A member of the RNA family "SucA RNA motif" from Caenimonas koreensis, 84 nucleotides long. The family's RNA type in Rfam is cis-regulatory element. A search with the family's covariance model found it, with a score of 75 bits. Lineage of the source: Bacteria > Burkholderiales > Comamonadaceae > Caenimonas > Caenimonas koreensis.

RNA sequence: UCGCAUCCGCCAACCGGUUCAGCCGUGCCGCGGAAGGUUCUCACAACCAGCCAAUGCCUCCUGCAGGGAGGCGGAAAGUCAGCG
Numbered sequence: 001u002c003g004c005a006u007c008c009g010c011c012a013a014c015c016g017g018u019u020c021a022g023c024c025g026u027g028c029c030g031c032g033g034a035a036g037g038u039u040c041u042c043a044c045a046a047c048c049a050g051c052c053a054a055u056g057c058c059u060c061c062u063g064c065a066g067g068g069a070g071g072c073g074g075a076a077a078g079u080c081a082g083c084g
Stems, first nucleotide, its partner, number of pairs: 002084003006034005015025004036048004050079002056072007
Gene Ontology term of the family: regulation of translation.